[Rfam]
RNA: Betaproteobacteria toxic small RNA
RNA sequence: UGUCUCCUCCACCCUCCUCCUUUGGUGUGGAUUUAGCGCGAUUCCAACGAAUCGCGCUUUUUUUU
Numbered sequence: 001u002g003u004c005u006c007c008u009c010c011a012c013c014c015u016c017c018u019c020c021u022u023u024g025g026u027g028u029g030g031a032u033u034u035a036g037c038g039c040g041a042u043u044c045c046a047a048c049g050a051a052u053c054g055c056g057c058u059u060u061u062u063u064u065u
Stems, first nucleotide, its partner, number of pairs: 008031005013025002035058008